[Rfam]
RNA sequence: ACCGGUCCUCGGUAGUGGCCCCCGGGCCAGCCGGCCGUCCGAGCCGGCUCCCCCGGGCGCUUCGAUCGAAGACCGGC
Numbered sequence: 001a002c003c004g005g006u007c008c009u010c011g012g013u014a015g016u017g018g019c020c021c022c023c024g025g026g027c028c029a030g031c032c033g034g035c036c037g038u039c040c041g042a043g044c045c046g047g048c049u050c051c052c053c054c055g056g057g058c059g060c061u062u063c064g065a066u067c068g069a070a071g072a073c074c075g076g077c
Stems, first nucleotide, its partner, number of pairs: 002076006009069005017061003021057006
The family of this 77-nucleotide RNA sequence from Polymorphospora rubra is "Actino-pnp RNA". A search with the family's covariance model found it, with a score of 54 bits. NCBI's taxonomy places the organism under Bacteria, Bacillati, Actinomycetes, Micromonosporales, Polymorphospora.